[Rfam]
RNA sequence: GGCGUGGCUGAUGAGAACCUGACCUUAGGUGGGCAUUUGUUUGGCCGUUUUGGUUCAAAUCGUGCCCACCGAUGCUAGGCCUUGUCAUAGUUACUCUGACACGCU
Numbered sequence: 001g002g003c004g005u006g007g008c009u010g011a012u013g014a015g016a017a018c019c020u021g022a023c024c025u026u027a028g029g030u031g032g033g034c035a036u037u038u039g040u041u042u043g044g045c046c047g048u049u050u051u052g053g054u055u056c057a058a059a060u061c062g063u064g065c066c067c068a069c070c071g072a073u074g075c076u077a078g079g080c081c082u083u084g085u086c087a088u089a090g091u092u093a094c095u096c097u098g099a100c101a102c103g104c105u
Stems, first nucleotide, its partner, number of pairs: 001105006
Dot-bracket structure: ((((((.............................................................................................))))))
RNA: Small nucleolar RNA SNORD46
Organism: Muraenolepis orangiensis